[Rfam]
Shown here is a 70-nucleotide RNA sequence from Terriglobus roseus, a member of the family "Fluoride riboswitch aptamer (crcB RNA motif)". The family's consensus secondary structure is taken from published work. Its family is annotated with response to fluoride and positive regulation of gene expression in the Gene Ontology. A search with the family's covariance model found it, with a score of 41 bits. Lineage of the source: Bacteria > Pseudomonadati > Terriglobales > Acidobacteriaceae > Terriglobus.
RNA sequence: CAACCAAAAGGCGAUGGGGUUCGCCUUGAUGCCCAGCCCACGGGCUGGAGCUGAUGACUCCUACGACAGU
Number, nucleotide and partner (000 for none) at each position: 001c000002a000003a000004c000005c000006a000007a000008a000009a000010g025011g024012c023013g022014a000015u000016g061017g060018g059019g058020u057021u056022c013023g012024c011025c010026u000027u000028g000029a000030u000031g051032c050033c000034c048035a000036g000037c000038c000039c000040a000041c000042g000043g000044g000045c000046u000047g000048g034049a000050g032051c031052u000053g000054a000055u000056g021057a020058c019059u018060c017061c016062u000063a000064c000065g000066a000067c000068a000069g000070u000